Rfam assigns this 108-nucleotide RNA sequence from Pandoraea pnomenusa to the family "ZMP/ZTP riboswitch aptamer (pfl RNA motif)".
The organism belongs to Pandoraea, within Bacteria.
The family's consensus secondary structure is taken from published work.
[Rfam]
Nucleotides: 108
Stems, first nucleotide, its partner, number of pairs: 003079001005077003009073004015067002017096005050063004085103005
Number, partner (000 for none) and nucleotide at each position: 001000c002000a003079a004000a005077c006076c007075c008000c009073g010072c011071g012070u013000g014000a015067c016066u017096g018095g019094c020093g021092a022000u023000u024000a025000g026000g027000g028000u029000g030000c031000a032000c033000a034000g035000c036000c037000u038000u039000g040000u041000g042000c043000g044000c045000c046000c047000g048000a049000g050063g051062u052061g053060g054000a055000u056000c057000a058000a059000c060053c061052c062051a063050c064000c065000g066016g067015g068000a069000a070012g071011c072010g073009c074000c075007g076006g077005g078000g079003u080000c081000u082000u083000a084000u085103u086102u087101g088100c089099c090000g091000u092021u093020c094019g095018c096017c097000u098000g099089g100088g101087c102086a103085g104000c105000c106000g107000u108000g